chrB-b RNA: a 46-nucleotide sequence from Bradyrhizobium sp. Leo170. A search with the family's covariance model found it, with a score of 56 bits. Rfam classes the family as a cis-regulatory element.
[Rfam]
RNA sequence: CGGGGAAAUGCAGGCUCCCCGUCAGACUUUUCGGUCCAAGCUCUGC
Numbered sequence: 001c002g003g004g005g006a007a008a009u010g011c012a013g014g015c016u017c018c019c020c021g022u023c024a025g026a027c028u029u030u031u032c033g034g035u036c037c038a039a040g041c042u043c044u045g046c
Base pairs, nucleotide, nucleotide: 001021002020003019004018005017006016010046011045012044013043014042025036026035027034028033